Acido-Lenti-1 RNA: a 45-nucleotide RNA sequence from Dyadobacter koreensis. NCBI's taxonomy places the organism under Bacteria, Pseudomonadati, Bacteroidota, Spirosomataceae, Dyadobacter. The base pairs follow the family's consensus structure, which is taken from published work.

[Rfam]
RNA sequence: CCCAGGCCGUUGGCCCGGGCUGAGAUAUGUCGGCCUUUCAGGCCU
Numbered sequence: 001c002c003c004a005g006g007c008c009g010u011u012g013g014c015c016c017g018g019g020c021u022g023a024g025a026u027a028u029g030u031c032g033g034c035c036u037u038u039c040a041g042g043c044c045u
Stems, first nucleotide, its partner, number of pairs: 001019003005015004032044005